Notes
This 102-nucleotide sequence from Secundilactobacillus kimchicus belongs to the Rfam family "TPP riboswitch aptamer (THI element)". The base pairs follow the family's consensus structure, which is taken from published work. Lineage of the source: Bacteria > Bacilli > Lactobacillales > Lactobacillaceae > Secundilactobacillus kimchicus.
RNA sequence: AAACAACACGAGGGGCGCCGAUUUUGGCUGAGAUGUGAUUCACUCACGGUCCCUUUGAACCUGUAAGGUAAUGCUUGCGAAGGAACGUGUGCAACAGCGGCC
Numbered sequence: 001a002a003a004c005a006a007c008a009c010g011a012g013g014g015g016c017g018c019c020g021a022u023u024u025u026g027g028c029u030g031a032g033a034u035g036u037g038a039u040u041c042a043c044u045c046a047c048g049g050u051c052c053c054u055u056u057g058a059a060c061c062u063g064u065a066a067g068g069u070a071a072u073g074c075u076u077g078c079g080a081a082g083g084a085a086c087g088u089g090u091g092c093a094a095c096a097g098c099g100g101c102c
Base pairs, nucleotide, nucleotide: 006090007089008088009087010086011054012053013052014051016048017028018027019026020025035047036046037045038044060083061082062081064077065076066075067074